[Rfam]
RNA sequence: GUCAUACUUUAGCAGCACGUAAAUAUUGGUGUUAAGACUGUAAAUAUCUCCAGUAUUAACUGUGCUGCUGAAGUAAGGC
Numbered sequence: 001g002u003c004a005u006a007c008u009u010u011a012g013c014a015g016c017a018c019g020u021a022a023a024u025a026u027u028g029g030u031g032u033u034a035a036g037a038c039u040g041u042a043a044a045u046a047u048c049u050c051c052a053g054u055a056u057u058a059a060c061u062g063u064g065c066u067g068c069u070g071a072a073g074u075a076a077g078g079c
Stems, first nucleotide, its partner, number of pairs: 001079003005075003010072001011069008020059001022057008
mir-16 microRNA precursor family: a 79-nucleotide sequence from Columba livia. The source organism's lineage runs through Eukaryota, Eumetazoa, Euteleostomi, Columbiformes and Columba. The base pairs follow the family's consensus structure, which was predicted with PFOLD. The family is grouped with related families in Rfam's "mir-15 clan". The match comes from Rfam's covariance-model search (82 bits).